A member of the RNA family "ASpks TB sRNA" from Streptomyces sp. DI166, 75 nucleotides long. The match comes from Rfam's covariance-model search (69 bits).

[Rfam]
RNA sequence: CUUCACCGAGCCGAGCCAGAGCGGGUGUUCGGGGUCCCGUCCCUGGCCGUACGUGGCGAGGAGCGCCUGGGCCUC
Numbered sequence: 001c002u003u004c005a006c007c008g009a010g011c012c013g014a015g016c017c018a019g020a021g022c023g024g025g026u027g028u029u030c031g032g033g034g035u036c037c038c039g040u041c042c043c044u045g046g047c048c049g050u051a052c053g054u055g056g057c058g059a060g061g062a063g064c065g066c067c068u069g070g071g072c073c074u075c
Base pairs, nucleotide, nucleotide: 014026016024017023035070036069038065039064043060044059047056048055049054
By type it is an antisense RNA. Pairs were carried over by alignment from the consensus structure, which is taken from published work. On this family, see Arnvig and Young, Mol Microbiol 2009: "Identification of small RNAs in Mycobacterium tuberculosis".